[Rfam]
RNA: Makes More Granules Regulator RNA (mmgR)
RNA sequence: UCCGGACGCCCUUCGGGCGUUUCCUCCCUAAACUUGGGCCACCGGUUACGGUGGCCUUUUUUUUGUCUGAA
Numbered sequence: 001u002c003c004g005g006a007c008g009c010c011c012u013u014c015g016g017g018c019g020u021u022u023c024c025u026c027c028c029u030a031a032a033c034u035u036g037g038g039c040c041a042c043c044g045g046u047u048a049c050g051g052u053g054g055c056c057u058u059u060u061u062u063u064u065g066u067c068u069g070a071a
Stems, first nucleotide, its partner, number of pairs: 008018004037056008